[Rfam]
RNA sequence: GAUAAGGAGGGCGAGAAACCCUCCCGCCGAAAGACUAAGGUUUCCUGAUCAACGCUAAUCGGAUCAGGGUAAGUCGGGACCUAAGGAUAAGCCGAACGGCGAUUCCGAUGGAAGAAUGGUUUAAUAUUCCCAUACUACUUUAUGGAGUGACGUGGAGACGGAGAAGUGACAGCCUUGCCACCUGACGGAAUAGGUGGUUGAAGGGUGUAGACGUAGAUGUUUGUAGGCAAAUCCGCAGACAGAGUCGAACCUGAGAGUAUACAGCGUGCUUGCACAAUGUAAUAAAGGCGUAACCAGGCUCCCUAGAAAAUCCGCUAAACAUAUCCAUAAAGUACCCGUACCGUAAACGGACACACGUAGUUGGGUUGAAAAUACUGAGGCGCU
Numbered sequence: 001g002a003u004a005a006g007g008a009g010g011g012c013g014a015g016a017a018a019c020c021c022u023c024c025c026g027c028c029g030a031a032a033g034a035c036u037a038a039g040g041u042u043u044c045c046u047g048a049u050c051a052a053c054g055c056u057a058a059u060c061g062g063a064u065c066a067g068g069g070u071a072a073g074u075c076g077g078g079a080c081c082u083a084a085g086g087a088u089a090a091g092c093c094g095a096a097c098g099g100c101g102a103u104u105c106c107g108a109u110g111g112a113a114g115a116a117u118g119g120u121u122u123a124a125u126a127u128u129c130c131c132a133u134a135c136u137a138c139u140u141u142a143u144g145g146a147g148u149g150a151c152g153u154g155g156a157g158a159c160g161g162a163g164a165a166g167u168g169a170c171a172g173c174c175u176u177g178c179c180a181c182c183u184g185a186c187g188g189a190a191u192a193g194g195u196g197g198u199u200g201a202a203g204g205g206u207g208u209a210g211a212c213g214u215a216g217a218u219g220u221u222u223g224u225a226g227g228c229a230a231a232u233c234c235g236c237a238g239a240c241a242g243a244g245u246c247g248a249a250c251c252u253g254a255g256a257g258u259a260u261a262c263a264g265c266g267u268g269c270u271u272g273c274a275c276a277a278u279g280u281a282a283u284a285a286a287g288g289c290g291u292a293a294c295c296a297g298g299c300u301c302c303c304u305a306g307a308a309a310a311u312c313c314g315c316u317a318a319a320c321a322u323a324u325c326c327a328u329a330a331a332g333u334a335c336c337c338g339u340a341c342c343g344u345a346a347a348c349g350g351a352c353a354c355a356c357g358u359a360g361u362u363g364g365g366u367u368g369a370a371a372a373u374a375c376u377g378a379g380g381c382g383c384u
Stems, first nucleotide, its partner, number of pairs: 006024006025382004033362004039342002044068006053061002075338004080111002085106003091100003116133004136334011147320002152315005160302004166295001168294001172289005177198006199257001203252004210246003218241007226234002260281004348357002364376003
A member of the RNA family "Bacterial large subunit ribosomal RNA" from Parabacteroides chinchillae, 384 nucleotides of a longer RNA. A search with the family's covariance model found it, with a score of 2761 bits. Lineage of the source: Bacteria > Pseudomonadati > Bacteroidota > Tannerellaceae > Parabacteroides.